[Rfam]
RNA: U11 spliceosomal RNA
Organism: Conidiobolus coronatus
RNA sequence: AAAAAGGGUCAGUGGUAGAAUUUUUAGGAAUUCUAUAUACCAUACAAUUUCCUUAAUUGUACAGAAUCGUUAUCAAAAGAUUUUGCUGAUAUAAUUUUUGUAAUUGGGCAGUCUCUUGGUCGCACGCUUUUUAUCGACUGAGACUGCUUC
Numbered sequence: 001a002a003a004a005a006g007g008g009u010c011a012g013u014g015g016u017a018g019a020a021u022u023u024u025u026a027g028g029a030a031u032u033c034u035a036u037a038u039a040c041c042a043u044a045c046a047a048u049u050u051c052c053u054u055a056a057u058u059g060u061a062c063a064g065a066a067u068c069g070u071u072a073u074c075a076a077a078a079g080a081u082u083u084u085g086c087u088g089a090u091a092u093a094a095u096u097u098u099u100g101u102a103a104u105u106g107g108g109c110a111g112u113c114u115c116u117u118g119g120u121c122g123c124a125c126g127c128u129u130u131u132u133a134u135c136g137a138c139u140g141a142g143a144c145u146g147c148u149u150c
Stems, first nucleotide, its partner, number of pairs: 008090005013042005043061007062085007107148009118139004